A member of the RNA family "SAM riboswitch aptamer (S box leader)" from Neobacillus cucumis, 101 nucleotides long.
Gene Ontology term of the family: regulation of gene expression.
Pairs were carried over by alignment from the consensus structure, which is taken from published work.

RNA sequence: UUCUUAUCAAGAGAGGCGUAGGGACUGGCCCGAUGAAGCCCGGCAACCUGCUAAGCAAGGUGCCAAUUCCAGCAAAAUGAUUCUCAUUUUGGAGAUAAGGU
Numbered sequence: 001u002u003c004u005u006a007u008c009a010a011g012a013g014a015g016g017c018g019u020a021g022g023g024a025c026u027g028g029c030c031c032g033a034u035g036a037a038g039c040c041c042g043g044c045a046a047c048c049u050g051c052u053a054a055g056c057a058a059g060g061u062g063c064c065a066a067u068u069c070c071a072g073c074a075a076a077a078u079g080a081u082u083c084u085c086a087u088u089u090u091g092g093a094g095a096u097a098a099g100g101u
Stems, first nucleotide, its partner, number of pairs: 002100007013041001015040003021031003025072004042064004047060002049057003068093001073091006